Shown here is a 443-nucleotide part of an RNA from Haematospirillum jordaniae, a member of the family "Bacterial large subunit ribosomal RNA".
Its Rfam clan is "LSU clan".
NCBI's taxonomy places the organism under Bacteria, Pseudomonadota, Alphaproteobacteria, Novispirillaceae, Haematospirillum.
It scores 2739 bits against the family's covariance model.
RNA sequence: CUCCGCGAAAGCUAUUUAGGUAGCGCGUCGGAUCUAUACCGCCGGGGGUAGAGCACUGGAUCGGGACGGGGGGCGCGAGCCUUACCAACUCGAACCAAACUCCGAAUACCGGCGAGUACUGUCCGGCAGACAGACGGUGGGUGCUAAGGUCCAUCGUCAAAAGGGAAACAGCCCAGACCGCCAGCUAAGGUCCCCAAGUCAUGGCUAAGUGGGAAAGGAUGUGGGACGGCCAAAACAACCAGGAGGUUGGCUUAGAAGCAGCCAUCCUUUAAAGAAAGCGUAACAGCUCACUGGUCUAAUUAAGCUGUCCUGCGCCGAAGAUGUACCGGGGCUAAAGCCAUGCACCGAAGCUGCGGGCUUGUCUAUGACAAGCGGUAGCGGAGCGUUCCGUAAGCCGGUGAAGGCAAACUGUGAGGUUUGCUGGAGGUAUCGGAAGUGAGAAU
Dot-bracket structure: ((((((....(((((....))))).((((((((..(...((((((.....(((...(((.((((...(((((((....))))).))...)))).)))..)).).....)))))).....)))))))).)...((((((((((......))))))))))....(((......)))...((((.(((...(((......(.((((((...........((..((((((((((.......(((((.(((..(((.........)))..)))(...)(...((......)).).)))))........)))))))))).))....................))))))))))...)))))))(((((((...)))))))....))))))(.(((((...(((......((((((((....))))))))...)))..)))))..).....